[Rfam]
RNA sequence: AAAACAGCUAAUGAUGUCAUCGUCGUAAAUUUCCUCGGAGAUGGACGAUGGCUGAUGAUUUUGUUUU
Dot-bracket structure: (((((..........(((((((((......(((....)))...)))))))))..........)))))

A member of the RNA family "Selenocysteine insertion sequence 1" from Helobdella robusta, 67 nucleotides long. Its family is annotated with selenocysteine incorporation in the Gene Ontology. Rfam's curators write: The incorporation of selenocysteine into a protein sequence is directed by an in-frame UGA codon (usually a stop codon) within the coding region of the mRNA. Selenoprotein mRNAs contain a conserved secondary structure in the 3' UTR that is required for the distinction of UGA stop from UGA selenocysteine. The selenocysteine insertion sequence (SECIS) is around 60 nt in length and adopts a hairpin structure which is sufficiently well-defined and conserved to act as a computational screen for selenoprotein genes. The base pairs follow the family's consensus structure, which is taken from published work. Rfam classes the family as a cis-regulatory element.